[Rfam]
RNA sequence: GAGUUGUGGUAUCUGGCAAGGUUAAGCACACGCGAAGCCGUAGCGAAAGCGAGUCUGAAAGGGCGUUUAGUCAGAUGCUGCAGACCCGAAGCCAAGUGAUCUAUCCAUGGCCAAGUUGAAGCGAGUGUAAUAGCUCGUGGAGGACUGAACUCGUACCCAUUGAAACGGGUUGGGAUGAGCUGUGGAUAGGGGUGAAAGGCCAAACAAACUUGGUGAUAGCUGGUU
Numbered sequence: 001g002a003g004u005u006g007u008g009g010u011a012u013c014u015g016g017c018a019a020g021g022u023u024a025a026g027c028a029c030a031c032g033c034g035a036a037g038c039c040g041u042a043g044c045g046a047a048a049g050c051g052a053g054u055c056u057g058a059a060a061g062g063g064c065g066u067u068u069a070g071u072c073a074g075a076u077g078c079u080g081c082a083g084a085c086c087c088g089a090a091g092c093c094a095a096g097u098g099a100u101c102u103a104u105c106c107a108u109g110g111c112c113a114a115g116u117u118g119a120a121g122c123g124a125g126u127g128u129a130a131u132a133g134c135u136c137g138u139g140g141a142g143g144a145c146u147g148a149a150c151u152c153g154u155a156c157c158c159a160u161u162g163a164a165a166c167g168g169g170u171u172g173g174g175a176u177g178a179g180c181u182g183u184g185g186a187u188a189g190g191g192g193u194g195a196a197a198g199g200c201c202a203a204a205c206a207a208a209c210u211u212g213g214u215g216a217u218a219g220c221u222g223g224u225u
Stems, first nucleotide, its partner, number of pairs: 005082013020039004026033002043050002053064004085223002088220001092213006101189011112177001114146004121138006150174003155170004191201003
The record is a 225-nucleotide part of an RNA from Helicobacter bilis, which matches "Bacterial large subunit ribosomal RNA" in Rfam. The organism belongs to Helicobacter bilis, within Bacteria. Clan: LSU clan. It is one of the family's seed sequences.